The family of this 166-nucleotide RNA sequence from Ruminococcus sp. AF31-8BH is "Clostridiales-1 RNA".
[Rfam]
RNA sequence: UUAUAAAAGUCCCGGACAGCGGCUAUGCCGAAAUGCAAGCUGGCUUGGAUUUCGGCAUAGACAUUGGACGGGCUAACCCACAUGAGCAUGCAGACCGGCAGGUCGGAAUGCGAAUGCGGGUGGGAAUUGCGGGAGCGCCAGGGCGCGGAGCAAUUCACUUUUAUAA
Dot-bracket structure: (((((((...((((...((.(.(((((((((((..((((....))))..))))))))))).).))...))))...((((.(((..((((...((((....))))...))))..))).))))..(((((((....((((....))))...)))))))...)))))))
The family's RNA type in Rfam is small RNA. A search with the family's covariance model found it, with a score of 112 bits. Taxonomically the source falls in Ruminococcus (Bacteria, Bacillota, Clostridia, Oscillospiraceae).